The family of this 79-nucleotide RNA sequence from Hermetia illucens is "drz-agam-1 ribozyme". Rfam 15.1 lists 10,507 matches to the family in 53 species. A search with the family's covariance model found it, with a score of 41 bits.
[Rfam]
RNA sequence: UACUUCCAAAUCCUAUCUCCACCUCCAUGCGGUGGUCGCUGAGAGUUCUUUCUUAAUGAAAAACUCCAGAGGGAGAAGG
Numbered sequence: 001u002a003c004u005u006c007c008a009a010a011u012c013c014u015a016u017c018u019c020c021a022c023c024u025c026c027a028u029g030c031g032g033u034g035g036u037c038g039c040u041g042a043g044a045g046u047u048c049u050u051u052c053u054u055a056a057u058g059a060a061a062a063a064c065u066c067c068a069g070a071g072g073g074a075g076a077a078g079g
Stems, first nucleotide, its partner, number of pairs: 012079003016075001018073003021033003043066005049060002052058001